[Rfam]
RNA sequence: CAGUUUUCCUCGGUAGUUAACUGCAGCUGGUUCCAUAAUUCGGCAGUUAACUGCCGAGG
Numbered sequence: 001c002a003g004u005u006u007u008c009c010u011c012g013g014u015a016g017u018u019a020a021c022u023g024c025a026g027c028u029g030g031u032u033c034c035a036u037a038a039u040u041c042g043g044c045a046g047u048u049a050a051c052u053g054c055c056g057a058g059g
Base pairs, nucleotide, nucleotide: 008059010057011056012055013054014053015052016051017050018049019048020047021046022045023044024043
This 59-nucleotide RNA sequence from Medicago truncatula belongs to the Rfam family "MIR2629 microRNA precursor family". NCBI's taxonomy places the organism under Eukaryota, Streptophytina, Euphyllophyta, Hologalegina, Medicago.